Rfam assigns this 66-nucleotide RNA from Achromobacter xylosoxidans to the family "DUF3800-VIII RNA". From the family's description: Bacteroidetes, Cyanobacteria, Firmicutes, Planctomycetes (1 example), Proteobacteria, Tenericutes (1 example). The family's RNA type in Rfam is small RNA. The sequence is in the family's curated seed alignment. Pairs were carried over by alignment from the consensus structure, which is taken from published work. NCBI's taxonomy places the organism under Bacteria, Pseudomonadota, Betaproteobacteria, Burkholderiales, Achromobacter xylosoxidans.

RNA sequence: UCAGCCCUUCGUUCAGCGAACGCCCAAGUUCCACUUGGGACACUUAUGUAGCUGGCGCGGGGCUUU
Number, nucleotide and partner (000 for none) at each position: 001u000002c000003a064004g063005c062006c061007c060008u059009u000010c057011g056012u055013u054014c000015a053016g052017c051018g000019a000020a000021c000022g000023c039024c038025c037026a036027a035028g034029u033030u000031c000032c000033a029034c028035u027036u026037g025038g024039g023040a000041c000042a000043c000044u000045u000046a000047u000048g000049u000050a000051g017052c016053u015054g013055g012056c011057g010058c000059g008060g007061g006062g005063c004064u003065u000066u000